[Rfam]
RNA sequence: UGCUUCUUCAAUUCCGUAGUGCAUUGCAGUCGAUUAUUCGAUUAACGAGAGAGAACCUGCAAGCACCGCGGGAGUGAGGUGGCCUC
Numbered sequence: 001u002g003c004u005u006c007u008u009c010a011a012u013u014c015c016g017u018a019g020u021g022c023a024u025u026g027c028a029g030u031c032g033a034u035u036a037u038u039c040g041a042u043u044a045a046c047g048a049g050a051g052a053g054a055a056c057c058u059g060c061a062a063g064c065a066c067c068g069c070g071g072g073a074g075u076g077a078g079g080u081g082g083c084c085u086c
Stems, first nucleotide, its partner, number of pairs: 006079005013072005020065003024062005
The record is an 86-nucleotide RNA from Habropoda laboriosa, which matches "mir-932 microRNA precursor family" in Rfam. A search with the family's covariance model found it, with a score of 69 bits. Its family is annotated with RISC complex and miRNA-mediated post-transcriptional gene silencing in the Gene Ontology. Pairs were carried over by alignment from the consensus structure, which was predicted with RNAalifold.